[Rfam]
Rfam assigns this 64-nucleotide RNA from Tabrizicola piscis to the family "L2-Alphaproteobacteria ribosomal protein leader". It scores 48 bits against the family's covariance model. NCBI's taxonomy places the organism under Bacteria, Alphaproteobacteria, Rhodobacterales, Paracoccaceae, Tabrizicola. For this family Rfam cites "Discovery of 20 novel ribosomal leader candidates in bacteria and archaea" (Eckert and Weinberg, BMC Microbiol, 2020).
RNA sequence: GGGGAUCUUCGGAGCCCUUCACCGCAGAGGUUGCAAGACCCUGCAUGCAAACGGAAGACAGAGA
Numbered sequence: 001g002g003g004g005a006u007c008u009u010c011g012g013a014g015c016c017c018u019u020c021a022c023c024g025c026a027g028a029g030g031u032u033g034c035a036a037g038a039c040c041c042u043g044c045a046u047g048c049a050a051a052c053g054g055a056a057g058a059c060a061g062a063g064a
Base pairs, nucleotide, nucleotide: 001018002017003016004015006014008012027042029040030039031038032037